About this RNA:
The family of this 53-nucleotide RNA is "eL15-Euryarchaeota ribosomal protein leader". It is one of the family's seed sequences. For this family Rfam cites "Discovery of 20 novel ribosomal leader candidates in bacteria and archaea" (Eckert and Weinberg, BMC Microbiol, 2020). Rfam classes the family as a cis-regulatory leader.

[Rfam]
RNA sequence: GCGGGAUUCGUCCCGUUAAAAGGAAUGUAGCCUGUUACAGGCCGAACCUUGAG
Numbered sequence: 001g002c003g004g005g006a007u008u009c010g011u012c013c014c015g016u017u018a019a020a021a022g023g024a025a026u027g028u029a030g031c032c033u034g035u036u037a038c039a040g041g042c043c044g045a046a047c048c049u050u051g052a053g
Base pairs, nucleotide, nucleotide: 001016002015003014004013005012021049022048023047030042031041032040033039034038